[Rfam]
RNA sequence: GGCCUCGGGCAGUCAAAGACAAAGAACCCCUGGAAAGAACCCACCCAACCCAACCAAACCUCACCCCCGUCACCCGCGCGGGUGAUUCCGCCCCACCGGGCUGGCGCUGGGGCGGUUCGGCGGGGCAGGCUCGGGCUCGACAACCCCAGACAUGCGACGGCCCCCGGCCGGGACUCGCACUCCCGAUCGAGGGCCUGACCACCGAGGAAGAGGCAACUUCCCG
Numbered sequence: 001g002g003c004c005u006c007g008g009g010c011a012g013u014c015a016a017a018g019a020c021a022a023a024g025a026a027c028c029c030c031u032g033g034a035a036a037g038a039a040c041c042c043a044c045c046c047a048a049c050c051c052a053a054c055c056a057a058a059c060c061u062c063a064c065c066c067c068c069g070u071c072a073c074c075c076g077c078g079c080g081g082g083u084g085a086u087u088c089c090g091c092c093c094c095a096c097c098g099g100g101c102u103g104g105c106g107c108u109g110g111g112g113c114g115g116u117u118c119g120g121c122g123g124g125g126c127a128g129g130c131u132c133g134g135g136c137u138c139g140a141c142a143a144c145c146c147c148a149g150a151c152a153u154g155c156g157a158c159g160g161c162c163c164c165c166g167g168c169c170g171g172g173a174c175u176c177g178c179a180c181u182c183c184c185g186a187u188c189g190a191g192g193g194c195c196u197g198a199c200c201a202c203c204g205a206g207g208a209a210g211a212g213g214c215a216a217c218u219u220c221c222c223g
Stems, first nucleotide, its partner, number of pairs: 001200001007067003070085006100136002102133003159195005165189002170184004206221005